Shown here is a 90-nucleotide sequence from Gemmatirosa kalamazoonensis, a member of the family "c-di-GMP-II-GAG riboswitch aptamer".

[Rfam]
RNA sequence: UCGACUCUCAGAAGCCAUGAUGCCCGACGCGCCGUUUUCUGGAUCGCCCUAGCGUCGGGCGGAGCUAAUCGCGAAACCGGCUGAGCACGA
Numbered sequence: 001u002c003g004a005c006u007c008u009c010a011g012a013a014g015c016c017a018u019g020a021u022g023c024c025c026g027a028c029g030c031g032c033c034g035u036u037u038u039c040u041g042g043a044u045c046g047c048c049c050u051a052g053c054g055u056c057g058g059g060c061g062g063a064g065c066u067a068a069u070c071g072c073g074a075a076a077c078c079g080g081c082u083g084a085g086c087a088c089g090a
Base pairs, nucleotide, nucleotide: 001090002089003088007085008084009083010082011081013066014065015064022060023059024058025057026056027055028054029053042078044074045073046072047071